Rfam assigns this 117-nucleotide RNA sequence from Acrobeloides nanus to the family "U5 spliceosomal RNA". Rfam classes the family as a spliceosomal small nuclear RNA. U5 RNA is a component of both types of known spliceosome. The precise function of this molecule is unknown, though it is known that the 5' loop is required for splice site selection and p220 binding, and that both the 3' stem-loop and the Sm site are important for Sm protein binding and cap methylation. For this family Rfam cites "The uRNA database" (Zwieb, Nucleic Acids Res, 1997). It scores 88 bits against the family's covariance model.
[Rfam]
RNA sequence: UAUCUCUGGUUCCUCUGCAUUUAUGCGAGAAAAUCUUUCGCCUUUUACUAAAGAUUUCCGUGCAGGGGGACGUUUAUGAGUAUUACUCAAUUUUUGGACGCCUCCUUUCGGGAGGUA
Numbered sequence: 001u002a003u004c005u006c007u008g009g010u011u012c013c014u015c016u017g018c019a020u021u022u023a024u025g026c027g028a029g030a031a032a033a034u035c036u037u038u039c040g041c042c043u044u045u046u047a048c049u050a051a052a053g054a055u056u057u058c059c060g061u062g063c064a065g066g067g068g069g070a071c072g073u074u075u076a077u078g079a080g081u082a083u084u085a086c087u088c089a090a091u092u093u094u095u096g097g098a099c100g101c102c103u104c105c106u107u108u109c110g111g112g113a114g115g116u117a
Stems, first nucleotide, its partner, number of pairs: 004080003009071011031057008100116005